Background:
Shown here is a 46-nucleotide RNA from Nematostella vectensis, a member of the family "Histone 3' UTR stem-loop". For this family Rfam cites "The sequence of the stem and flanking sequences at the 3' end of histone mRNA are critical determinants for the binding of the stem-loop binding protein" (Williams and Marzluff, Nucleic Acids Res, 1995). Taxonomically the source falls in Nematostella (Eukaryota, Metazoa, Cnidaria, Actiniaria). Its family is annotated with mRNA 3'-end processing by stem-loop binding and cleavage in the Gene Ontology. The sequence is in the family's curated seed alignment.
RNA sequence: AAAACGGCUCUUUUAGGAGCUACCACAUGCAAAAAAGUCAAUAGCC
Numbered sequence: 001a002a003a004a005c006g007g008c009u010c011u012u013u014u015a016g017g018a019g020c021u022a023c024c025a026c027a028u029g030c031a032a033a034a035a036a037g038u039c040a041a042u043a044g045c046c
Stems, first nucleotide, its partner, number of pairs: 006021006